[Rfam]
The family of this 134-nucleotide RNA from Suricata suricatta is "U4 spliceosomal RNA". The family's consensus secondary structure is taken from published work. U4 small nuclear RNA (U4 snRNA) is a component of the major U2-dependent spliceosome. By type it is a spliceosomal small nuclear RNA. Lineage of the source: Eukaryota > Opisthokonta > Metazoa > Herpestidae > Suricata.

Nucleotides: 134
Base pairs, nucleotide, nucleotide: 020052021051022050023049024048026047027046028045034042080106082104083103084102085101086100087099120134121133122132123131
Number, partner (000 for none) and nucleotide at each position: 001000a002000g003000c004000u005000u006000u007000g008000u009000g010000c011000a012000g013000u014000g015000g016000c017000a018000g019000u020052a021051u022050c023049g024048u025000a026047g027046c028045c029000a030000a031000u032000g033000a034042g035000a036000u037000u038000u039000a040000u041000c042034c043000g044000a045028g046027g047026u048024g049023c050022g051021a052020u053000u054000a055000u056000u057000g058000c059000u060000a061000c062000a063000u064000a065000a066000a067000a068000c069000a070000u071000u072000g073000u074000g075000u076000a077000a078000g079000g080106u081000u082104a083103a084102g085101c086100c087099a088000u089000a090000g091000a092000a093000a094000a095000a096000u097000g098000u099087u100086g101085g102084u103083u104082u105000c106080a107000u108000a109000u110000g111000c112000u113000u114000u115000g116000a117000u118000a119000c120134a121133c122132a123131u124000a125000u126000a127000u128000c129000a130000c131123a132122u133121g134120u